[Rfam]
RNA: Small nucleolar RNA R30/Z108
Organism: Zea mays
RNA sequence: AAUUGUUGCGAUGAGGAUACCAAACUCCCUCUUCUGAAGGCAUUGAGGCUCGCAGGCAGAAUCAAACCAAUAAUCCUAUUGCCACCACUGAGUAA
Numbered sequence: 001a002a003u004u005g006u007u008g009c010g011a012u013g014a015g016g017a018u019a020c021c022a023a024a025c026u027c028c029c030u031c032u033u034c035u036g037a038a039g040g041c042a043u044u045g046a047g048g049c050u051c052g053c054a055g056g057c058a059g060a061a062u063c064a065a066a067c068c069a070a071u072a073a074u075c076c077u078a079u080u081g082c083c084a085c086c087a088c089u090g091a092g093u094a095a
Base pairs, nucleotide, nucleotide: 006095007094008093009092